[Rfam]
The record is a 238-nucleotide sequence from Cytobacillus solani, which matches "Group II catalytic intron D1-D4-6" in Rfam. The organism belongs to Cytobacillus, within Bacteria. Group II introns are found in rRNA, tRNA and mRNA of organelles in fungi, plants and protists, and also in mRNA in bacteria. A search with the family's covariance model found it, with a score of 140 bits.
RNA sequence: GGAUUCCCGCCGAUUAAGAACUAGCCAUUCGCUCGUAGCGAGUCUUGGAGGACUAAAGGUAACUCUAGUCUUUAAGCGUAGACAGUUAGGUAGCGGGCCGAAAGCCAAAUGGUUGAAGGGAUGGAGCUCCAUAAACUUUAGUAAACCGAGAGGGCUGAUGCUUUACCUGCAGCAGAAAGCUACAUUUAAUCCUUCGUCAAAGGCUAGACGGAUUAAACCUCUCUGGAGUCAGAGACCU
Numbered sequence: 001g002g003a004u005u006c007c008c009g010c011c012g013a014u015u016a017a018g019a020a021c022u023a024g025c026c027a028u029u030c031g032c033u034c035g036u037a038g039c040g041a042g043u044c045u046u047g048g049a050g051g052a053c054u055a056a057a058g059g060u061a062a063c064u065c066u067a068g069u070c071u072u073u074a075a076g077c078g079u080a081g082a083c084a085g086u087u088a089g090g091u092a093g094c095g096g097g098c099c100g101a102a103a104g105c106c107a108a109a110u111g112g113u114u115g116a117a118g119g120g121a122u123g124g125a126g127c128u129c130c131a132u133a134a135a136c137u138u139u140a141g142u143a144a145a146c147c148g149a150g151a152g153g154g155c156u157g158a159u160g161c162u163u164u165a166c167c168u169g170c171a172g173c174a175g176a177a178a179g180c181u182a183c184a185u186u187u188a189a190u191c192c193u194u195c196g197u198c199a200a201a202g203g204c205u206a207g208a209c210g211g212a213u214u215a216a217a218c219c220u221c222u223c224u225g226g227a228g229u230c231a232g233a234g235a236c237c238u
Stems, first nucleotide, its partner, number of pairs: 011035003018030003022206004038086002042083004046078002048073008057064002124230001126229006148223006154180003159174004185217008194208002